[Rfam]
RNA sequence: ACAUGCUAUAAUAAAAAAGAAAACGUGCUAGUAACACGUCCCUUUGAUGUAGAACCGUUUAAGACGGUAGCUUAGUUUAAUUAGUUAAAA
Dot-bracket structure: .......................((((.......))))...............((((((...))))))......................